The family of this 161-nucleotide sequence from Nyssa sinensis is "U1 spliceosomal RNA". A search with the family's covariance model found it, with a score of 130 bits. Its Rfam clan is "U1 clan". U1 is a small nuclear RNA (snRNA) component of the spliceosome (involved in pre-mRNA splicing). Its 5' end forms complementary base pairs with the 5' splice junction, thus defining the 5' donor site of an intron. There are significant differences in sequence and secondary structure between metazoan and yeast U1 snRNAs, the latter being much longer (568 nucleotides as compared to 164 nucleotides in human). Nevertheless, secondary structure predictions suggest that all U1 snRNAs share a 'common core' consisting of helices I, II, the proximal region of III, and IV. This family does not contain the larger yeast sequences. Pairs were carried over by alignment from the consensus structure, which is taken from published work. By type it is a spliceosomal small nuclear RNA.
[Rfam]
RNA sequence: UUACAUACCUGGACGUGGUCAAUGGGCGAUCAAGCAGGCCCAUGGCCUAGGUUGGUGACCUUCAUUGCACUUUGAAGGGGCUCUCAGCCUAACAUCUCUCCAUGUGAGAGACUGUACGUCAUAAUUUCUGGUAGUGGGGCUUGCGCUUGCGCAGCCCCUAU
Numbered sequence: 001u002u003a004c005a006u007a008c009c010u011g012g013a014c015g016u017g018g019u020c021a022a023u024g025g026g027c028g029a030u031c032a033a034g035c036a037g038g039c040c041c042a043u044g045g046c047c048u049a050g051g052u053u054g055g056u057g058a059c060c061u062u063c064a065u066u067g068c069a070c071u072u073u074g075a076a077g078g079g080g081c082u083c084u085c086a087g088c089c090u091a092a093c094a095u096c097u098c099u100c101c102a103u104g105u106g107a108g109a110g111a112c113u114g115u116a117c118g119u120c121a122u123a124a125u126u127u128c129u130g131g132u133a134g135u136g137g138g139g140c141u142u143g144c145g146c147u148u149g150c151g152c153a154g155c156c157c158c159u160a161u
Stems, first nucleotide, its partner, number of pairs: 012120004017047005023042005049090005055083001057081001059079003062075002092115003095111003099107002135160005142153004